[Rfam]
RNA sequence: UCUACUCUAGGCCUUCUCUUCCCAGCUAUUCCCGGAGUCGGGAAAAGCUGGGUUGUGAGGGCGAAAAAGGAAGAGA
Numbered sequence: 001u002c003u004a005c006u007c008u009a010g011g012c013c014u015u016c017u018c019u020u021c022c023c024a025g026c027u028a029u030u031c032c033c034g035g036a037g038u039c040g041g042g043a044a045a046a047g048c049u050g051g052g053u054u055g056u057g058a059g060g061g062c063g064a065a066a067a068a069g070g071a072a073g074a075g076a
Base pairs, nucleotide, nucleotide: 014059015058016057018055021052022051023050024049025048029044030043031042032041033040034039

A member of the RNA family "mir-320 microRNA precursor family" from Hipposideros armiger, 76 nucleotides long. The organism belongs to Hipposideros, within Eukaryota. The literature on the family includes a 2006 paper in Genome Res by Berezikov et al., "Many novel mammalian microRNA candidates identified by extensive cloning and RAKE analysis". Rfam 15.1 lists 659 matches to the family in 129 species. The match comes from Rfam's covariance-model search (83 bits). The family's consensus secondary structure was predicted with RNAalifold.